[Rfam]
RNA sequence: UUCUUAUCGAGAGAGGCGGAGGGACUGGCCCUAAGAAGUCUCGGCAGCGGACUCGGUUUCGAGUGCUGUGCCAAAUCCAGCAAGCGUUAUGCUUGAGAGAUAAGAA
Numbered sequence: 001u002u003c004u005u006a007u008c009g010a011g012a013g014a015g016g017c018g019g020a021g022g023g024a025c026u027g028g029c030c031c032u033a034a035g036a037a038g039u040c041u042c043g044g045c046a047g048c049g050g051a052c053u054c055g056g057u058u059u060c061g062a063g064u065g066c067u068g069u070g071c072c073a074a075a076u077c078c079a080g081c082a083a084g085c086g087u088u089a090u091g092c093u094u095g096a097g098a099g100a101u102a103a104g105a106a
Stems, first nucleotide, its partner, number of pairs: 001106008013042005021031003025080004043072004048068002051064004076098001081095006
The record is a 106-nucleotide RNA sequence from Thermolongibacillus altinsuensis, which matches "SAM riboswitch aptamer (S box leader)" in Rfam. It scores 86 bits against the family's covariance model. The source organism's lineage runs through Bacteria, Bacillati, Bacillota, Caryophanales and Thermolongibacillus.